[Rfam]
RNA sequence: AUGACGUGUGGCAUGCCCGUUGUGGAAUUACUCUGAUGAAUAUUUACUAUUUAAUUGUUUUUGGGUAACGGGGUGUUACACUCCA
Numbered sequence: 001a002u003g004a005c006g007u008g009u010g011g012c013a014u015g016c017c018c019g020u021u022g023u024g025g026a027a028u029u030a031c032u033c034u035g036a037u038g039a040a041u042a043u044u045u046a047c048u049a050u051u052u053a054a055u056u057g058u059u060u061u062u063g064g065g066u067a068a069c070g071g072g073g074u075g076u077u078a079c080a081c082u083c084c085a
Stems, first nucleotide, its partner, number of pairs: 002085002006081009016072006
The family of this 85-nucleotide RNA from Medicago truncatula is "MIR2617 microRNA precursor family".
Rfam links the family to the GO terms miRNA-mediated post-transcriptional gene silencing and RISC complex.
The family has 3 seed sequences and 1,174 matches in Rfam 15.1.
It scores 78 bits against the family's covariance model.
The base pairs follow the family's consensus structure, which was predicted with RNAalifold.
The source organism's lineage runs through Eukaryota, Pentapetalae, Fabales, Papilionoideae and Medicago.